[Rfam]
RNA sequence: ACUGCUUUUCUUUGAUGUCCCCAUUUUGUGGAGCCCAUCAACCCCGCCAUUUCGGUUCAAGGUUGGUGGGUUUUUUGUU
Numbered sequence: 001a002c003u004g005c006u007u008u009u010c011u012u013u014g015a016u017g018u019c020c021c022c023a024u025u026u027u028g029u030g031g032a033g034c035c036c037a038u039c040a041a042c043c044c045c046g047c048c049a050u051u052u053c054g055g056u057u058c059a060a061g062g063u064u065g066g067u068g069g070g071u072u073u074u075u076u077g078u079u
Stems, first nucleotide, its partner, number of pairs: 032072012
RNA: RybB RNA